[Rfam]
RNA sequence: AGCUCUAUAGGGGUCUAAUUUAUUUCCUAAACUUUUCUAUAGAAGGGUAUUUGGUGUUAUUAAAUAGUUAUUUUUCCAUUAUGCU
Numbered sequence: 001a002g003c004u005c006u007a008u009a010g011g012g013g014u015c016u017a018a019u020u021u022a023u024u025u026c027c028u029a030a031a032c033u034u035u036u037c038u039a040u041a042g043a044a045g046g047g048u049a050u051u052u053g054g055u056g057u058u059a060u061u062a063a064a065u066a067g068u069u070a071u072u073u074u075u076c077c078a079u080u081a082u083g084c085u
Base pairs, nucleotide, nucleotide: 010077011076012075016062017061018060024054025053030048032046033045034044035043036042
About this RNA: The record is an 85-nucleotide RNA from Fukomys damarensis, which matches "Stem loopII regulatory element in POLB" in Rfam. For this family Rfam cites "Hairpin structure within the 3'UTR of DNA polymerase beta mRNA acts as a post-transcriptional regulatory element and interacts with Hax-1" (Sarnowska et al., Nucleic Acids Res, 2007). The source organism's lineage runs through Eukaryota, Bilateria, Chordata, Gnathostomata and Fukomys. By type it is a cis-regulatory element.